This 239-nucleotide RNA from Prauserella cavernicola belongs to the Rfam family "Actinobacteria sRNA Ms_IGR-5". It is annotated as a small RNA. NCBI's taxonomy places the organism under Bacteria, Actinomycetota, Pseudonocardiales, Pseudonocardiaceae, Prauserella. A search with the family's covariance model found it, with a score of 81 bits. The pairing is the family consensus, mapped onto this sequence.

Nucleotides: 239
Stems, first nucleotide, its partner, number of pairs: 014058006059140005065134001067132004158233010169223002173192006
Number, partner (000 for none) and nucleotide at each position: 001000a002000c003000a004000c005000g006000a007000g008000a009000a010000a011000g012000g013000a014058g015057g016056u017055g018054g019053u020000c021000c022000g023000a024000a025000g026000u027000u028000g029000a030000a031000c032000g033000g034000c035000u036000a037000u038000a039000g040000g041000a042000c043000u044000c045000g046000u047000g048000a049000g050000g051000u052000g053019g054018c055017u056016g057015u058014c059140c060139g061138c062137u063136g064000a065134c066000g067132g068131g069130c070129a071000g072000c073000a074000c075000a076000c077000g078000g079000a080000c081000c082000a083000c084000c085000u086000g087000g088000g089000c090000a091000c092000g093000c094000u095000g096000a097000c098000c099000g100000c101000g102000a103000g104000g105000u106000c107000g108000c109000g110000g111000g112000c113000c114000c115000g116000c117000a118000g119000u120000c121000g122000u123000g124000a125000c126000g127000u128000g129070u130069g131068c132067c133000u134065g135000g136063c137062g138061g139060u140059g141000a142000a143000u144000a145000c146000c147000a148000g149000g150000c151000a152000g153000c154000c155000a156000c157000c158233g159232g160231c161230c162229c163228c164227c165226u166225g167224c168000a169223g170222u171000u172000u173192c174191c175190g176189a177188g178187c179000u180000u181000g182000g183000u184000c185000c186000g187178g188177c189176u190175c191174g192173g193000g194000c195000c196000c197000g198000a199000a200000c201000g202000g203000c204000u205000g206000a207000c208000g209000a210000c211000g212000u213000u214000c215000g216000g217000g218000a219000g220000u221000c222170g223169c224167g225166c226165a227164g228163g229162g230161g231160g232159c233158c234000u235000u236000u237000c238000a239000c